A member of the RNA family "terC RNA" from Erythrobacter litoralis, 59 nucleotides long.
Lineage of the source: Bacteria > Pseudomonadati > Pseudomonadota > Erythrobacteraceae > Erythrobacter litoralis.
Rfam's curators put it in the seed alignment.
Rfam classes the family as a cis-regulatory element.
RNA sequence: GACACGGACCGGGCCCCUCUGGCGGGCGCAUGAAGCGCUCGUGAUGUCGGACGUAUCGC
Dot-bracket structure: ......(.((((.........((((((((.....))))))))....)))).).......